RNA sequence: UCCAUGCCCCGGGUGACGCUUCUCCCCCCAACCCCGCCAGGGCCGGAAGGCAGCAACGGUAAAGGGGAGGGCGGGUGCCCGCGGGCUUACCUGU
Numbered sequence: 001u002c003c004a005u006g007c008c009c010c011g012g013g014u015g016a017c018g019c020u021u022c023u024c025c026c027c028c029c030a031a032c033c034c035c036g037c038c039a040g041g042g043c044c045g046g047a048a049g050g051c052a053g054c055a056a057c058g059g060u061a062a063a064g065g066g067g068a069g070g071g072c073g074g075g076u077g078c079c080c081g082c083g084g085g086c087u088u089a090c091c092u093g094u
Base pairs, nucleotide, nucleotide: 004088006086007085008084010081011080012079013078014075017073018072019071020070021069023068024067025066026065027064034059035058036057042051043050044049
Dot-bracket structure: ...(.(((.(((((..(((((.(((((......(((.....(((....))).....)))....)))))))))).)..))))..))).)......
A member of the RNA family "Bacterial small signal recognition particle RNA" from Enhygromyxa salina, 94 nucleotides long. Taxonomically the source falls in Enhygromyxa (Bacteria, Polyangia, Nannocystales, Nannocystaceae). It scores 54 bits against the family's covariance model.